RNA: Small nucleolar RNA SNORD105
Organism: Tupaia belangeri
RNA sequence: CCCCCAUCUCUCAGGAUGAGCCCCUCUGCCUCUGAGCUGCCAUGAUUCUGGCUUCAAAGUAAACGCUCUGAAGAGAGGGGG
Numbered sequence: 001c002c003c004c005c006a007u008c009u010c011u012c013a014g015g016a017u018g019a020g021c022c023c024c025u026c027u028g029c030c031u032c033u034g035a036g037c038u039g040c041c042a043u044g045a046u047u048c049u050g051g052c053u054u055c056a057a058a059g060u061a062a063a064c065g066c067u068c069u070g071a072a073g074a075g076a077g078g079g080g081g
Base pairs, nucleotide, nucleotide: 002081003080004079005078007076008075009074010073